[Rfam]
RNA sequence: GCUCUGGGCUGGAUAUCAUCAUAUAUUGUAAGUUCACAAUUCAGACACUACAGUAUAGAUGAUGUACUACACAGGGCUA
Numbered sequence: 001g002c003u004c005u006g007g008g009c010u011g012g013a014u015a016u017c018a019u020c021a022u023a024u025a026u027u028g029u030a031a032g033u034u035c036a037c038a039a040u041u042c043a044g045a046c047a048c049u050a051c052a053g054u055a056u057a058g059a060u061g062a063u064g065u066a067c068u069a070c071a072c073a074g075g076g077c078u079a
Stems, first nucleotide, its partner, number of pairs: 008070001011067001013065008022057009032046003
The record is a 79-nucleotide RNA from Callorhinchus milii, which matches "mir-144 microRNA precursor family" in Rfam. Rfam links the family to the GO terms RISC complex and miRNA-mediated post-transcriptional gene silencing. The organism belongs to Callorhinchus, within Eukaryota. The base pairs follow the family's consensus structure, which was predicted with RNAalifold. The match comes from Rfam's covariance-model search (81 bits).